The family of this 131-nucleotide RNA sequence from Ligilactobacillus agilis is "Ribosomal protein L20 leader".
The match comes from Rfam's covariance-model search (65 bits).
The organism belongs to Ligilactobacillus agilis, within Bacteria.
Its family is annotated with regulation of gene expression in the Gene Ontology.
This family is a putative r-protein leader autoregulatory structure found in B. subtilis and other low-GC Gram-positive bacteria.
RNA sequence: AGAAAAAAGCAGAGGCUCCCGCUUCUCGCCUAAGGAAUAAGUGAGUUCCUGGGCAAGGAUAACUGAAAUUAAUUCCGAUAAAAACGGAUUAGUGCGGGCGUCUAGUGAUAGAUGCCCGUUUUUUUCUGCAU
Numbered sequence: 001a002g003a004a005a006a007a008a009g010c011a012g013a014g015g016c017u018c019c020c021g022c023u024u025c026u027c028g029c030c031u032a033a034g035g036a037a038u039a040a041g042u043g044a045g046u047u048c049c050u051g052g053g054c055a056a057g058g059a060u061a062a063c064u065g066a067a068a069u070u071a072a073u074u075c076c077g078a079u080a081a082a083a084a085c086g087g088a089u090u091a092g093u094g095c096g097g098g099c100g101u102c103u104a105g106u107g108a109u110a111g112a113u114g115c116c117c118g119u120u121u122u123u124u125u126c127u128g129c130a131u
Stems, first nucleotide, its partner, number of pairs: 011026006028054003034049005095118010